The family of this 46-nucleotide RNA sequence from Eptatretus burgeri is "Histone 3' UTR stem-loop". Gene Ontology term of the family: mRNA 3'-end processing by stem-loop binding and cleavage. The mRNAs of metazoan histone genes lack a poly-A tail. 3' end processing occurs at a site between a highly conserved stem-loop (modelled by this family) and a purine rich region around 20 nts downstream (the histone downstream element, or HDE). The stem-loop is bound by a 31 kDa stem-loop binding protein (SLBP - also termed the histone hairpin binding protein, or HBP). Together with U7 snRNA binding of the HDE, SLBP binding nucleate s the formation of the processing complex. Lineage of the source: Eukaryota > Metazoa > Myxinidae > Eptatretinae > Eptatretus. The match comes from Rfam's covariance-model search (37 bits).
[Rfam]
RNA sequence: CAAACGGCUCUUUUCAGAGCCACUCAAAUGUUUCUUUAACUGAGUA
Numbered sequence: 001c002a003a004a005c006g007g008c009u010c011u012u013u014u015c016a017g018a019g020c021c022a023c024u025c026a027a028a029u030g031u032u033u034c035u036u037u038a039a040c041u042g043a044g045u046a
Stems, first nucleotide, its partner, number of pairs: 006021006